[Rfam]
RNA sequence: ACGCAAGAAAGGAGGUGGUCCGAGAAAUGGUUGACUCUAGGACUGGCGAGGUGGCCGUCCGCUAGGGCGACGCAACGCGUUCGCGCGACGUCGUUCGCCGCGAAUCCCAGACGGACACCCGGACCCCGGGCUGCCGGACCUCGUCCGACCGGCCCCGCCCCCUCGGCGGGAGACGGCCCGGGGUCCGUCCGCA
Dot-bracket structure: .............((((((..................................))))))(((....(..(((...................)))....)))).................(((((((((((((.((((.(.......).))))......................)))))))))))))......
RNA: Actinobacteria sRNA Ms_IGR-5